[Rfam]
Nucleotides: 094
Base pairs, nucleotide, nucleotide: 005080006079007078008077009076010075011074012073015070016069017068018067019066020065021064022063024061025059026058028057029056030055031054032053033052035050036049
Number, partner (000 for none) and nucleotide at each position: 001000g002000c003000a004000a005080a006079c007078a008077c009076g010075a011074c012073u013000u014000u015070a016069g017068c018067a019066a020065c021064g022063g023000u024061c025059g026058g027000a028057a029056g030055c031054a032053c033052a034000u035050g036049a037000a038000u039000c040000g041000g042000u043000u044000a045000u046000g047000a048000u049036u050035c051000a052033u053032g054031u055030g056029c057028u058026u059025c060000c061024g062000a063022c064021c065020g066019u067018u068017g069016c070015u071000a072000a073012a074011g075010u076009c077008g078007u079006g080005u081000u082000u083000g084000c085000c086000a087000u088000g089000a090000a091000u092000c093000g094000g
Shown here is a 94-nucleotide sequence from Modicella reniformis, a member of the family "mir-210 microRNA precursor family".
The source organism's lineage runs through Eukaryota, Mortierellomycota, Mortierellales, Mortierellaceae and Modicella.
Its family is annotated with miRNA-mediated post-transcriptional gene silencing and RISC complex in the Gene Ontology.
A search with the family's covariance model found it, with a score of 56 bits.